[Rfam]
RNA: Small nucleolar RNA SNORD115
Organism: Bos grunniens
RNA sequence: GGGUUGAGGAGAAGAAUUCAUAUGGUUCUGAAGAGAGAUGAUCACCUAAAAAUCAUGUUCGAUAGAAGUAUGCUGAGGCCC
Numbered sequence: 001g002g003g004u005u006g007a008g009g010a011g012a013a014g015a016a017u018u019c020a021u022a023u024g025g026u027u028c029u030g031a032a033g034a035g036a037g038a039u040g041a042u043c044a045c046c047u048a049a050a051a052a053u054c055a056u057g058u059u060c061g062a063u064a065g066a067a068g069u070a071u072g073c074u075g076a077g078g079c080c081c
Stems, first nucleotide, its partner, number of pairs: 001081004005075002009071001